The record is a 119-nucleotide sequence from Aureimonas jatrophae, which matches "Alphaproteobacterial ar14" in Rfam. By type it is a small RNA. Pairs were carried over by alignment from the consensus structure. A search with the family's covariance model found it, with a score of 74 bits. A reference for the family is del Val et al. (2012), "A survey of sRNA families in alpha-proteobacteria", RNA Biol. The organism belongs to Aureimonas, within Bacteria. From the family's description: Smr14C2 was renamed NfeR1 (Nodule Formation Efficiency RNA) highly expressed in salt stress and during the symbiotic interaction on legume roots.
[Rfam]
RNA sequence: CCCAUUCGCAAGGGCCCAACCUCCUCCCAACGGGCCCGAGCGACCAGAGCCUGCGAACCCUCCUCCCAUCGCAGGCUUCCAAACAGCACCCGCCGGUCCUCCCCCGGCGGGUGUUGUCG
Numbered sequence: 001c002c003c004a005u006u007c008g009c010a011a012g013g014g015c016c017c018a019a020c021c022u023c024c025u026c027c028c029a030a031c032g033g034g035c036c037c038g039a040g041c042g043a044c045c046a047g048a049g050c051c052u053g054c055g056a057a058c059c060c061u062c063c064u065c066c067c068a069u070c071g072c073a074g075g076c077u078u079c080c081a082a083a084c085a086g087c088a089c090c091c092g093c094c095g096g097u098c099c100u101c102c103c104c105c106g107g108c109g110g111g112u113g114u115u116g117u118c119g
Stems, first nucleotide, its partner, number of pairs: 007042003012037006047078010086114011